Rfam assigns this 90-nucleotide sequence from Cocos nucifera to the family "Small nucleolar RNA snoR27". Pairs were carried over by alignment from the consensus structure, which was predicted with WAR. Lineage of the source: Eukaryota > Petrosaviidae > Arecoideae > Cocoseae > Cocos. Rfam classes the family as a C/D-box small nucleolar RNA. The match comes from Rfam's covariance-model search (62 bits).
[Rfam]
RNA sequence: ACUGGAUCUAUGAUGUGUCUGUAGUCUGCGUUAUCUUUCUGUAACUUCGAUGGAGGAAUUGAAGAUGACACCUAUCUACUGAGAUCUGGU
Numbered sequence: 001a002c003u004g005g006a007u008c009u010a011u012g013a014u015g016u017g018u019c020u021g022u023a024g025u026c027u028g029c030g031u032u033a034u035c036u037u038u039c040u041g042u043a044a045c046u047u048c049g050a051u052g053g054a055g056g057a058a059u060u061g062a063a064g065a066u067g068a069c070a071c072c073u074a075u076c077u078a079c080u081g082a083g084a085u086c087u088g089g090u
Stems, first nucleotide, its partner, number of pairs: 001090007